[Rfam]
RNA sequence: GAAGUUUUCCGGGCGGUCGUCGGCGGUUUUAGGCCGCGGGAGGAAAGUCCGGACUCCGCAGGGCGCCGUAGGAGGUAACGCCUCUCCGCCGUAAGGCGCGGAUUAGAGCAACAGAGACGAGCCGGCUUCGGGCCGGGUGAAACGGGCAAUCUCUACGGGGAGCAACAUCAAAUAGGCAGCCAAUGGGCGGGCCCCGUCCGGCUGCGGGUAGAUGGCUUGAGGCGACGCGUGAGCGUCGUCCUAGAUGAAUGACCGCCGCCGAGGUCCUAUAGGACUUCGCGCGACAGAAUCCGGCUUACAAGAGAACUUCCGCC
Numbered sequence: 001g002a003a004g005u006u007u008u009c010c011g012g013g014c015g016g017u018c019g020u021c022g023g024c025g026g027u028u029u030u031a032g033g034c035c036g037c038g039g040g041a042g043g044a045a046a047g048u049c050c051g052g053a054c055u056c057c058g059c060a061g062g063g064c065g066c067c068g069u070a071g072g073a074g075g076u077a078a079c080g081c082c083u084c085u086c087c088g089c090c091g092u093a094a095g096g097c098g099c100g101g102a103u104u105a106g107a108g109c110a111a112c113a114g115a116g117a118c119g120a121g122c123c124g125g126c127u128u129c130g131g132g133c134c135g136g137g138u139g140a141a142a143c144g145g146g147c148a149a150u151c152u153c154u155a156c157g158g159g160g161a162g163c164a165a166c167a168u169c170a171a172a173u174a175g176g177c178a179g180c181c182a183a184u185g186g187g188c189g190g191g192c193c194c195c196g197u198c199c200g201g202c203u204g205c206g207g208g209u210a211g212a213u214g215g216c217u218u219g220a221g222g223c224g225a226c227g228c229g230u231g232a233g234c235g236u237c238g239u240c241c242u243a244g245a246u247g248a249a250u251g252a253c254c255g256c257c258g259c260c261g262a263g264g265u266c267c268u269a270u271a272g273g274a275c276u277u278c279g280c281g282c283g284a285c286a287g288a289a290u291c292c293g294g295c296u297u298a299c300a301a302g303a304g305a306a307c308u309u310c311c312g313c314c
Base pairs, nucleotide, nucleotide: 001310002309003308004307005306006305007304008303009302011299012257013256014255015254016253017252018251020040021039023037024036025035026034027033028032045297046296047295049294050293051292052291053290054162055161056160057159061194062193063192064191066158067157068156069155070154071085072084073083074082075081086100087098088097089096090095101153102152106151107150108147109146122136123135124134125133126132127131166214167213168212169211176205177204178203179202180201181200185199186198187197188196189195221240222239223238224237225236226235227234228233